[Rfam]
The record is a 156-nucleotide RNA from Rubidibacter lacunae, which matches "Ribosomal protein L10 leader" in Rfam. Lineage of the source: Bacteria > Bacillati > Cyanophyceae > Oscillatoriophycideae > Rubidibacter lacunae. By type it is a cis-regulatory leader. From the family's description: This family is a putative r-protein leader autoregulatory structure found in B. subtilis and other low-GC Gram-positive bacteria.
RNA sequence: UCAACAGAUUUUUCAGUGCUGAAGACAGCAGGUGCCCCCGGGGCUUAAACAUCCUGCCGAGGUUGCUGCUCUAUGUUUCGCGAUUGCCCCGUAUGGGGGCUUCCGAAUCGAAGCUGCUGGACCUCGGAAUUCUCCGAGGUCUUUGCAUUUGCAGCC
Numbered sequence: 001u002c003a004a005c006a007g008a009u010u011u012u013u014c015a016g017u018g019c020u021g022a023a024g025a026c027a028g029c030a031g032g033u034g035c036c037c038c039c040g041g042g043g044c045u046u047a048a049a050c051a052u053c054c055u056g057c058c059g060a061g062g063u064u065g066c067u068g069c070u071c072u073a074u075g076u077u078u079c080g081c082g083a084u085u086g087c088c089c090c091g092u093a094u095g096g097g098g099g100c101u102u103c104c105g106a107a108u109c110g111a112a113g114c115u116g117c118u119g120g121a122c123c124u125c126g127g128a129a130u131u132c133u134c135c136g137a138g139g140u141c142u143u144u145g146c147a148u149u150u151g152c153a154g155c156c
Stems, first nucleotide, its partner, number of pairs: 028057005034044003120141009